[Rfam]
RNA sequence: ACCACGGCUAGGCCGGCCAGCUGAAAGCGGGAAACCUUCGCCCGUUGCCGUGGUGACCAUCGAAGGG
Numbered sequence: 001a002c003c004a005c006g007g008c009u010a011g012g013c014c015g016g017c018c019a020g021c022u023g024a025a026a027g028c029g030g031g032a033a034a035c036c037u038u039c040g041c042c043c044g045u046u047g048c049c050g051u052g053g054u055g056a057c058c059a060u061c062g063a064a065g066g067g
Base pairs, nucleotide, nucleotide: 001054002053003052004051005050006049007048008047011022012021013020027045028044029043030042031041035067036066037065038064

Rfam assigns this 67-nucleotide sequence from Ahniella affigens to the family "int-alpA RNA". Rfam classes the family as a small RNA. Rfam's curators write: Acidobacteria (1 example), Planctomycetes (1 example), Proteobacteria. Lineage of the source: Bacteria > Pseudomonadota > Gammaproteobacteria > Lysobacterales > Ahniella.